The family of this 136-nucleotide sequence is "FMN riboswitch aptamer (RFN element)".
[Rfam]
RNA sequence: AUCAAUCUUCGGGGCAGGGUGCAAUUCCCGACCGGCGGUGAUGAAAUUUAUAUUUCUAAGUCCGCGAGCCGUAAUAAUGGCAGGAUCUGGUGCGAUUCCAGAACCGACAGUAUAGUCUGGAUGUGAGAAGAUGGAG
Numbered sequence: 001a002u003c004a005a006u007c008u009u010c011g012g013g014g015c016a017g018g019g020u021g022c023a024a025u026u027c028c029c030g031a032c033c034g035g036c037g038g039u040g041a042u043g044a045a046a047u048u049u050a051u052a053u054u055u056c057u058a059a060g061u062c063c064g065c066g067a068g069c070c071g072u073a074a075u076a077a078u079g080g081c082a083g084g085a086u087c088u089g090g091u092g093c094g095a096u097u098c099c100a101g102a103a104c105c106g107a108c109a110g111u112a113u114a115g116u117c118u119g120g121a122u123g124u125g126a127g128a129a130g131a132u133g134g135a136g
Base pairs, nucleotide, nucleotide: 003134005132006131007130008129009128010127017029018028019027031116032115033106034105035065036064037063038062060104061103068081069080070079086102087101088100089099090098108119109118110117

Overview:
It scores 120 bits against the family's covariance model.